[Rfam]
RNA sequence: UGCAGACGCCUCUGGCGUUUCCUCCCUUUGACUUUGGCCGCGCCUGAGGGCGCGGCCUUUUUUCUUUCCGGU
Numbered sequence: 001u002g003c004a005g006a007c008g009c010c011u012c013u014g015g016c017g018u019u020u021c022c023u024c025c026c027u028u029u030g031a032c033u034u035u036g037g038c039c040g041c042g043c044c045u046g047a048g049g050g051c052g053c054g055g056c057c058u059u060u061u062u063u064c065u066u067u068c069c070g071g072u
Stems, first nucleotide, its partner, number of pairs: 008016003036057009

A member of the RNA family "Makes More Granules Regulator RNA (mmgR)" from Hyphomonas neptunium, 72 nucleotides long. The match comes from Rfam's covariance-model search (54 bits). The family has 87 seed sequences and 1,791 matches in Rfam 15.1. Taxonomically the source falls in Hyphomonas neptunium (Bacteria, Pseudomonadota, Alphaproteobacteria, Hyphomonadaceae). It is annotated as a small RNA. Its family is annotated with response to nitrogen compound, DNA-templated transcription, termination and protein binding in the Gene Ontology.